Shown here is a 160-nucleotide RNA from Pilibacter termitis, a member of the family "Lysine riboswitch aptamer". The match comes from Rfam's covariance-model search (69 bits). From the family's description: Riboswitches are metabolite binding domains within certain messenger RNAs that serve as precision sensors for their corresponding targets. The base pairs follow the family's consensus structure, which is taken from published work. The source organism's lineage runs through Bacteria, Bacilli, Lactobacillales, Enterococcaceae and Pilibacter. Gene Ontology term of the family: lysine biosynthetic process.
RNA sequence: CAAAGAAAUAGAGGUCGCAAAUGCUAAGAACUCUGCGGAGGGGUGCCGUUGAAACAGAUAAGGAGCAUUUGCCGAAAUACCGAGGUAGACAUAUUGAGGUAUUGGGACAACUGGGAAUACUGGUUGGACUCCGCAAGUUUUGCGAGGUGCUAUUUUUCGG
Numbered sequence: 001c002a003a004a005g006a007a008a009u010a011g012a013g014g015u016c017g018c019a020a021a022u023g024c025u026a027a028g029a030a031c032u033c034u035g036c037g038g039a040g041g042g043g044u045g046c047c048g049u050u051g052a053a054a055c056a057g058a059u060a061a062g063g064a065g066c067a068u069u070u071g072c073c074g075a076a077a078u079a080c081c082g083a084g085g086u087a088g089a090c091a092u093a094u095u096g097a098g099g100u101a102u103u104g105g106g107a108c109a110a111c112u113g114g115g116a117a118u119a120c121u122g123g124u125u126g127g128a129c130u131c132c133g134c135a136a137g138u139u140u141u142g143c144g145a146g147g148u149g150c151u152a153u154u155u156u157u158c159g160g
Stems, first nucleotide, its partner, number of pairs: 006155006017072009033057003076103006084095004104130002108126007132144005